[Rfam]
RNA sequence: CGGGUACGGACACCCGACGGAAACAGGGGCAAGGGCGGGGAACCCAAAGUCCCACGCAGGGAGCCGGGAGAAGUCGAAAGACCGAUCCCUUGGGGUGAAGUCCCGGGCAACCGGGACCGGACGACCUCUCAGUCCGAACCCGACAGCUCACCUCGCAGGAGCGUACGAGAGGAAGA
Numbered sequence: 001c002g003g004g005u006a007c008g009g010a011c012a013c014c015c016g017a018c019g020g021a022a023a024c025a026g027g028g029g030c031a032a033g034g035g036c037g038g039g040g041a042a043c044c045c046a047a048a049g050u051c052c053c054a055c056g057c058a059g060g061g062a063g064c065c066g067g068g069a070g071a072a073g074u075c076g077a078a079a080g081a082c083c084g085a086u087c088c089c090u091u092g093g094g095g096u097g098a099a100g101u102c103c104c105g106g107g108c109a110a111c112c113g114g115g116a117c118c119g120g121a122c123g124a125c126c127u128c129u130c131a132g133u134c135c136g137a138a139c140c141c142g143a144c145a146g147c148u149c150a151c152c153u154c155g156c157a158g159g160a161g162c163g164u165a166c167g168a169g170a171g172g173a174a175g176a
Stems, first nucleotide, its partner, number of pairs: 035156006045092002093141003101116004119135004

Shown here is a 176-nucleotide RNA from Nocardia pseudobrasiliensis, a member of the family "c-di-AMP riboswitch aptamer (ydaO/yuaA leader)". The match comes from Rfam's covariance-model search (57 bits). Rfam links the family to the GO terms regulation of gene expression and cyclic-di-AMP binding.